[Rfam]
RNA sequence: CGCGGGGGAUGACCUCCGCGCCUUUGCUUUUUCCGGGGACGACCCCC
Numbered sequence: 001c002g003c004g005g006g007g008g009a010u011g012a013c014c015u016c017c018g019c020g021c022c023u024u025u026g027c028u029u030u031u032u033c034c035g036g037g038g039a040c041g042a043c044c045c046c047c
Base pairs, nucleotide, nucleotide: 001020002019003018004017005016006015007014008013035046036045037044038043
RNA: Guanidine-II riboswitch aptamer (mini-ykkC)